[Rfam]
Shown here is a 131-nucleotide RNA sequence from Ornithorhynchus anatinus, a member of the family "Small nucleolar RNA SNORA27". About the family: ACA27 is a member of the H/ACA class of snoRNA that guide the sites of modification of uridines to pseudouridines. Rfam classes the family as an H/ACA-box small nucleolar RNA. The source organism's lineage runs through Eukaryota, Bilateria, Deuterostomia, Prototheria and Ornithorhynchus.

RNA sequence: CCCCCCCUUUCACUUUGCCAGUUAGACAUUUCUCUUGUCUUUAUUGGUCAUUCAAAUGGGGUAAAUUAAUUUCCUUUUAAAACUCAAGCAAACAAAUUUGUUUGUCUUGUAUCCUAUCAGGGGAGACAUUU
Numbered sequence: 001c002c003c004c005c006c007c008u009u010u011c012a013c014u015u016u017g018c019c020a021g022u023u024a025g026a027c028a029u030u031u032c033u034c035u036u037g038u039c040u041u042u043a044u045u046g047g048u049c050a051u052u053c054a055a056a057u058g059g060g061g062u063a064a065a066u067u068a069a070u071u072u073c074c075u076u077u078u079a080a081a082a083c084u085c086a087a088g089c090a091a092a093c094a095a096a097u098u099u100g101u102u103u104g105u106c107u108u109g110u111a112u113c114c115u116a117u118c119a120g121g122g123g124a125g126a127c128a129u130u131u
Base pairs, nucleotide, nucleotide: 036063037062038061039060040059044055045054046053047052072124073123074122075121076120077119085109086107088105089104090103091102092101093100